[Rfam]
Nucleotides: 135
Stems, first nucleotide, its partner, number of pairs: 002053003020047001025042004078123002089111006
Number, partner (000 for none) and nucleotide at each position: 001000u002053u003052g004051c005000u006000g007000c008000c009000a010000a011000u012000u013000a014000a015000g016000c017000c018000a019000c020047c021000c022000a023000u024000g025042c026041u027040u028039u029000u030000c031000u032000c033000c034000c035000a036000g037000u038000g039028g040027g041026g042025g043000c044000c045000c046000a047020g048000u049000g050000u051004g052003c053002a054000g055000u056000g057000g058000c059000c060000g061000c062000a063000a064000a065000c066000c067000g068000c069000a070000g071000c072000c073000u074000u075000c076000u077000u078123g079122g080000c081000a082000g083000u084000g085000u086000g087000c088000g089111c090110a091109g092108c093107c094106u095000g096000g097000u098000g099000c100000c101000u102000g103000u104000a105000u106094g107093g108092g109091u110090u111089g112000u113000c114000c115000c116000a117000a118000g119000g120000g121000a122079c123078c124000u125000u126000g127000a128000a129000g130000a131000c132000a133000g134000c135000c
This 135-nucleotide RNA sequence from Catagonus wagneri belongs to the Rfam family "Small nucleolar RNA SNORA70". Taxonomically the source falls in Catagonus (Eukaryota, Gnathostomata, Mammalia, Boreoeutheria). The literature on the family includes a 2000 paper in IUBMB Life by Charette and Gray, "Pseudouridine in RNA: what, where, how, and why". By type it is an H/ACA-box small nucleolar RNA. Rfam 15.1 lists 5,173 matches to the family in 383 species. The family's consensus secondary structure was predicted with PFOLD.